[Rfam]
RNA sequence: AUGACUAUGUGUGACUGGCGAGGAUGCAGAAUAAACUGCAGGGGAGCACAUAGUGACGCAGCCGCUCGCCUGGGCAAAGGUA
Numbered sequence: 001a002u003g004a005c006u007a008u009g010u011g012u013g014a015c016u017g018g019c020g021a022g023g024a025u026g027c028a029g030a031a032u033a034a035a036c037u038g039c040a041g042g043g044g045a046g047c048a049c050a051u052a053g054u055g056a057c058g059c060a061g062c063c064g065c066u067c068g069c070c071u072g073g074g075c076a077a078a079g080g081u082a
Stems, first nucleotide, its partner, number of pairs: 004054009015043002017070005026039004061075003
Annotation
The family of this 82-nucleotide RNA from Gracilibacillus halotolerans is "ZMP/ZTP riboswitch aptamer (pfl RNA motif)".